[Rfam]
Shown here is a 71-nucleotide RNA sequence from Megalops atlanticus, a member of the family "mir-29 microRNA precursor family". The literature on the family includes a 2001 paper in Cell by Ambros, "microRNAs: tiny regulators with great potential". Rfam 15.1 lists 3,328 matches to the family in 787 species. Rfam describes the family as follows. This family represents the microRNA (miRNA) precursors mir-29.

RNA sequence: GGAAGCUGGUUUCAGGUGGUGGCUUAGAGGCUCUAUAUCACUGAUCUAGCACCAUCUGAAAUCAGUGUUCU
Numbered sequence: 001g002g003a004a005g006c007u008g009g010u011u012u013c014a015g016g017u018g019g020u021g022g023c024u025u026a027g028a029g030g031c032u033c034u035a036u037a038u039c040a041c042u043g044a045u046c047u048a049g050c051a052c053c054a055u056c057u058g059a060a061a062u063c064a065g066u067g068u069u070c071u
Stems, first nucleotide, its partner, number of pairs: 001071004005066010016055006025048004